[Rfam]
RNA sequence: AAAAAGGGCUUCUGCUGUGCGUAGCACAUGGAGUUGGGGGCGGCUACGGCUUAGCUUCUCUCUGUGCGGAAUCGACAUCAAGAGAUUUCGGAAGCAUAAUUUUUGUUACUGGGGCAGCUAGUAACCGCUUGUUCUGGCGCCCCA
Numbered sequence: 001a002a003a004a005a006g007g008g009c010u011u012c013u014g015c016u017g018u019g020c021g022u023a024g025c026a027c028a029u030g031g032a033g034u035u036g037g038g039g040g041c042g043g044c045u046a047c048g049g050c051u052u053a054g055c056u057u058c059u060c061u062c063u064g065u066g067c068g069g070a071a072u073c074g075a076c077a078u079c080a081a082g083a084g085a086u087u088u089c090g091g092a093a094g095c096a097u098a099a100u101u102u103u104u105g106u107u108a109c110u111g112g113g114g115c116a117g118c119u120a121g122u123a124a125c126c127g128c129u130u131g132u133u134c135u136g137g138c139g140c141c142c143c144a
Base pairs, nucleotide, nucleotide: 008095009094010093011092012091013026014025015024016023017022027066028065029064030063031062032061033060036057037056038055067090068089069088070087071086072085073084112142113141114140115139117138118137119136120135121134123133124132125131